[Rfam]
RNA sequence: UCGAAGCUCCAUCCACAAACGGAUAAGAUUUCUGUCUUAGUGUAUAUGAAGCGUUGAAGUUGAAGGAGCAAUACCGACCCUCUUGAUAGAAUAGAGGGUCGGUAUUGCUCCAUG
Dot-bracket structure: .......(((.(......).))).......................................(.((((((((((.(((.((((.........)))).))).)))))))))).).
RNA: Plastid-psbA-1 3UTR RNA